[Rfam]
MIR812 microRNA precursor family: a 204-nucleotide sequence from Oryza sativa. The sequence is in the family's curated seed alignment. Rfam links the family to the GO terms RISC complex and miRNA-mediated post-transcriptional gene silencing. Taxonomically the source falls in Oryza (Eukaryota, Spermatophyta, Petrosaviidae, Oryzoideae).
RNA sequence: UUUAAGUGCAACCAUAUAUUUUCGUAUUCAAUUUUGAUCGUUCGUCUUAUUUUAAUUUUUUUGUAAUUAAUAUUUUUGUUGUUAUAAGAUGAUAAAACAUGCAUAGUAUUUUACGCGUGACUUAUGUUUUAAAUUUUUUCUAAAAUUUUUUUAAAUAAGACGAACGGUUAAAGUUGGACGCGGAAAAUUAUGGAUGCACUUAAA
Numbered sequence: 001u002u003u004a005a006g007u008g009c010a011a012c013c014a015u016a017u018a019u020u021u022u023c024g025u026a027u028u029c030a031a032u033u034u035u036g037a038u039c040g041u042u043c044g045u046c047u048u049a050u051u052u053u054a055a056u057u058u059u060u061u062u063g064u065a066a067u068u069a070a071u072a073u074u075u076u077u078g079u080u081g082u083u084a085u086a087a088g089a090u091g092a093u094a095a096a097a098c099a100u101g102c103a104u105a106g107u108a109u110u111u112u113a114c115g116c117g118u119g120a121c122u123u124a125u126g127u128u129u130u131a132a133a134u135u136u137u138u139u140c141u142a143a144a145a146u147u148u149u150u151u152u153a154a155a156u157a158a159g160a161c162g163a164a165c166g167g168u169u170a171a172a173g174u175u176g177g178a179c180g181c182g183g184a185a186a187a188u189u190a191u192g193g194a195u196g197c198a199c200u201u202a203a204a
Base pairs, nucleotide, nucleotide: 027178028177029176030175031174032173033172034171035170036169037168038167039166040165041164042163043162044161045160046159047158048157049156050155
Dot-bracket structure: ..........................((((((((((((((((((((((((........................................................................................................))))))))))))))))))))))))..........................